[Rfam]
RNA sequence: UUGACAGUCCAAACACCACCUGCCUCCGUGAGAUACACGGGGUGAGGUCUUCGCCGCUUGCGGUCAUAUUUCGGAGCACUGAUAUAUGGGGAGAGGAGACCUGCGAUUCGUUCGCUUGAUGACGUGGUACGUUGGACAU
Numbered sequence: 001u002u003g004a005c006a007g008u009c010c011a012a013a014c015a016c017c018a019c020c021u022g023c024c025u026c027c028g029u030g031a032g033a034u035a036c037a038c039g040g041g042g043u044g045a046g047g048u049c050u051u052c053g054c055c056g057c058u059u060g061c062g063g064u065c066a067u068a069u070u071u072c073g074g075a076g077c078a079c080u081g082a083u084a085u086a087u088g089g090g091g092a093g094a095g096g097a098g099a100c101c102u103g104c105g106a107u108u109c110g111u112u113c114g115c116u117u118g119a120u121g122a123c124g125u126g127g128u129a130c131g132u133u134g135g136a137c138a139u
Base pairs, nucleotide, nucleotide: 007137008136009135010134016127017126018125019124024042025041026040027039028038029037030036046101047100048099049098050097051096052095103115104114105113106112
Record summary:
The record is a 139-nucleotide RNA, which matches "RAGATH-24 RNA" in Rfam. It is annotated as a small RNA. The family's consensus secondary structure is taken from published work.